[Rfam]
RNA sequence: ACCUGUUGCGGGCGGCCGCGUAGUGGCGCGCGCAGCACCAGACACACACCUUGCCAUGGGAAGAACGUGGCACUUCAGGGCGUU
Dot-bracket structure: ...(((((((.(((.((((...))))))).)))))))..............(((((((.......)))))))............
Description:
A member of the RNA family "nrdJ RNA" from Streptomyces olivochromogenes, 84 nucleotides long. It is annotated as a small RNA.